[Rfam]
RNA sequence: AUGCGCUCCGGGGCUCGGUGAAAGUCCGAACCGGCGGUGACAGUCCGCGACUCGCCGAUCAGUGUCGGCGAUUGAACCGGUGGAACUCCGGUACCGACGGUGACAGUCCGGAUGGGAGGACGCGCAC
Numbered sequence: 001a002u003g004c005g006c007u008c009c010g011g012g013g014c015u016c017g018g019u020g021a022a023a024g025u026c027c028g029a030a031c032c033g034g035c036g037g038u039g040a041c042a043g044u045c046c047g048c049g050a051c052u053c054g055c056c057g058a059u060c061a062g063u064g065u066c067g068g069c070g071a072u073u074g075a076a077c078c079g080g081u082g083g084a085a086c087u088c089c090g091g092u093a094c095c096g097a098c099g100g101u102g103a104c105a106g107u108c109c110g111g112a113u114g115g116g117a118g119g120a121c122g123c124g125c126a127c
Stems, first nucleotide, its partner, number of pairs: 003125004007120003016028003030107002032096002034048004043094002052071002076092005098110003
Dot-bracket structure: ..(((((((......(((.......))).[[((((((.....[[))))...((................))....(((((.......)))))]])).(((.....]]))).......))).))))..
RNA: FMN riboswitch aptamer (RFN element)